Rfam assigns this 95-nucleotide RNA sequence from Gossypium harknessii to the family "MIR8675 microRNA precursor family". NCBI's taxonomy places the organism under Eukaryota, Spermatophyta, Mesangiospermae, Pentapetalae, Gossypium. A search with the family's covariance model found it, with a score of 93 bits.
RNA sequence: CAUGACACUCUGAGAUUAUGUCACAUCAUCACUUGAAAAUUAAAAUAUAUAUACAAAUUUUCAAGUGAUGACAUGGUACAAUUUUAGAGUGUCAC
Numbered sequence: 001c002a003u004g005a006c007a008c009u010c011u012g013a014g015a016u017u018a019u020g021u022c023a024c025a026u027c028a029u030c031a032c033u034u035g036a037a038a039a040u041u042a043a044a045a046u047a048u049a050u051a052u053a054c055a056a057a058u059u060u061u062c063a064a065g066u067g068a069u070g071a072c073a074u075g076g077u078a079c080a081a082u083u084u085u086a087g088a089g090u091g092u093c094a095c
Stems, first nucleotide, its partner, number of pairs: 003094007012085006019078005026071016